This 100-nucleotide sequence from Paenibacillus endophyticus belongs to the Rfam family "pan motif". It is annotated as a cis-regulatory element. It scores 47 bits against the family's covariance model.
RNA sequence: CAGGCGGUAUUCGAAUGAAGCUGCACUGGUAAUUAUAUUAAUCAUGUAAAUGGUUGGGAAUGCACACUCUGCUCUGAGCCGUAGGGACCGAGACAGAAGG
Numbered sequence: 001c002a003g004g005c006g007g008u009a010u011u012c013g014a015a016u017g018a019a020g021c022u023g024c025a026c027u028g029g030u031a032a033u034u035a036u037a038u039u040a041a042u043c044a045u046g047u048a049a050a051u052g053g054u055u056g057g058g059a060a061u062g063c064a065c066a067c068u069c070u071g072c073u074c075u076g077a078g079c080c081g082u083a084g085g086g087a088c089c090g091a092g093a094c095a096g097a098a099g100g
Stems, first nucleotide, its partner, number of pairs: 001028003004024005010019002069096003072092003076088001079086002